RNA: Bacterial RNase P class B
RNA sequence: UUAAAUCCGCAGUCGCUGGCAAUAGCUAGAGGAAAGUCCAUGCUCGCACGAUCUGCGAUGAUCGUAGUGUUUGUGCUAGAUGAAUCAAUAAGUCUAGGCAGUUGAAGCCAUUCAAUUGACGGCAACUUCAAUCCUAAGGGAAACUAAGGAAGCGAGUUUGAAAGUGCCACAGAGACGAGUUCGAAUGGAAACAUCCGAGGUGGAACGGGUAAACCCCACAAGCGAGAAACCCAAAUUUGGUAGGGGAGUCGGCCAGAAUGAAUCAAAAGGAUGGCCGGAUAUCGAAAGAUGAUAUCGAAAGAUAUAGAUAAAUGACUGCAUAUACAGAACAUGGCUUAUGCAUU
Numbered sequence: 001u002u003a004a005a006u007c008c009g010c011a012g013u014c015g016c017u018g019g020c021a022a023u024a025g026c027u028a029g030a031g032g033a034a035a036g037u038c039c040a041u042g043c044u045c046g047c048a049c050g051a052u053c054u055g056c057g058a059u060g061a062u063c064g065u066a067g068u069g070u071u072u073g074u075g076c077u078a079g080a081u082g083a084a085u086c087a088a089u090a091a092g093u094c095u096a097g098g099c100a101g102u103u104g105a106a107g108c109c110a111u112u113c114a115a116u117u118g119a120c121g122g123c124a125a126c127u128u129c130a131a132u133c134c135u136a137a138g139g140g141a142a143a144c145u146a147a148g149g150a151a152g153c154g155a156g157u158u159u160g161a162a163a164g165u166g167c168c169a170c171a172g173a174g175a176c177g178a179g180u181u182c183g184a185a186u187g188g189a190a191a192c193a194u195c196c197g198a199g200g201u202g203g204a205a206c207g208g209g210u211a212a213a214c215c216c217c218a219c220a221a222g223c224g225a226g227a228a229a230c231c232c233a234a235a236u237u238u239g240g241u242a243g244g245g246g247a248g249u250c251g252g253c254c255a256g257a258a259u260g261a262a263u264c265a266a267a268a269g270g271a272u273g274g275c276c277g278g279a280u281a282u283c284g285a286a287a288g289a290u291g292a293u294a295u296c297g298a299a300a301g302a303u304a305u306a307g308a309u310a311a312a313u314g315a316c317u318g319c320a321u322a323u324a325c326a327g328a329a330c331a332u333g334g335c336u337u338a339u340g341c342a343u344u
Stems, first nucleotide, its partner, number of pairs: 004344003007340001009319006016029005034337003038334005043226005048065006071221005076097006098120001099118008121216002124158004132150003138145002164214002166210003180199004185194003230245003249278007279305005